RNA: Rhodo-rpoB RNA
Organism: Palleronia caenipelagi
RNA sequence: GGAUCGGGCGGCUGUCUGUGGGACGACAGCCAGGUAUGGAUCCGGACCCCCGUCUCAAUCGGUGCCGGUCUCUCGCCCAGGAGGUCGCGCA
Numbered sequence: 001g002g003a004u005c006g007g008g009c010g011g012c013u014g015u016c017u018g019u020g021g022g023a024c025g026a027c028a029g030c031c032a033g034g035u036a037u038g039g040a041u042c043c044g045g046a047c048c049c050c051c052g053u054c055u056c057a058a059u060c061g062g063u064g065c066c067g068g069u070c071u072c073u074c075g076c077c078c079a080g081g082a083g084g085u086c087g088c089g090c091a
Stems, first nucleotide, its partner, number of pairs: 001043005010031007063091003068085005